mir-9193 microRNA precursor family: a 73-nucleotide RNA from Pipistrellus kuhlii. A search with the family's covariance model found it, with a score of 58 bits.
RNA sequence: GACGGGGGUGGGGGUCCCUCAUCCAGGAUUGCGAGAGGGUGCAGGCCAGACUCAGGGACCCCAAUGGUGCACA
Numbered sequence: 001g002a003c004g005g006g007g008g009u010g011g012g013g014g015u016c017c018c019u020c021a022u023c024c025a026g027g028a029u030u031g032c033g034a035g036a037g038g039g040u041g042c043a044g045g046c047c048a049g050a051c052u053c054a055g056g057g058a059c060c061c062c063a064a065u066g067g068u069g070c071a072c073a
Stems, first nucleotide, its partner, number of pairs: 004070001006068001008065002011062009021052001024049001026047002029044005